[Rfam]
RNA sequence: CGUUGCUUCAUGCAACCAGCUAAUGCUCCGGCAGUCUGAGAGGAGCGCCUUCGGGUGACUGCCAGCCAACGUUUUACCGGUCUGAGAGAAACACCUUCGGGUGACCGGAAAAUCCUCGCAGCCUGAGAGAGGAUACCUUCGGGUGGUAAAUCC
Numbered sequence: 001c002g003u004u005g006c007u008u009c010a011u012g013c014a015a016c017c018a019g020c021u022a023a024u025g026c027u028c029c030g031g032c033a034g035u036c037u038g039a040g041a042g043g044a045g046c047g048c049c050u051u052c053g054g055g056u057g058a059c060u061g062c063c064a065g066c067c068a069a070c071g072u073u074u075u076a077c078c079g080g081u082c083u084g085a086g087a088g089a090a091a092c093a094c095c096u097u098c099g100g101g102u103g104a105c106c107g108g109a110a111a112a113u114c115c116u117c118g119c120a121g122c123c124u125g126a127g128a129g130a131g132g133a134u135a136c137c138u139u140c141g142g143g144u145g146g147u148a149a150a151u152c153c
Stems, first nucleotide, its partner, number of pairs: 002016005025046005031062006047056003071092005077108006093102003113132002116129001121147003135144003

STAXI RNA: a 153-nucleotide sequence from Erwinia tracheiphila. The family's RNA type in Rfam is small RNA.